[Rfam]
RNA: Rhizobiales sRNA Atu_At1
RNA sequence: AUCCGUUGCAUGUCAAUCGGCCAUGACGGGAUGGAGAGCACGGCGUUUUUUCCGAUUUCCCGCUCUGGCCAGCACAGAGGUAGACGAGCUUCUCGUCCCGCCAGCAAC
Numbered sequence: 001a002u003c004c005g006u007u008g009c010a011u012g013u014c015a016a017u018c019g020g021c022c023a024u025g026a027c028g029g030g031a032u033g034g035a036g037a038g039c040a041c042g043g044c045g046u047u048u049u050u051u052c053c054g055a056u057u058u059c060c061c062g063c064u065c066u067g068g069c070c071a072g073c074a075c076a077g078a079g080g081u082a083g084a085c086g087a088g089c090u091u092c093u094c095g096u097c098c099c100g101c102c103a104g105c106a107a108c
Base pairs, nucleotide, nucleotide: 006107007106008105009104011023012022014020025102027100028099029098030097033092034091035090036089039067040066042064043063044062045061068081069080070079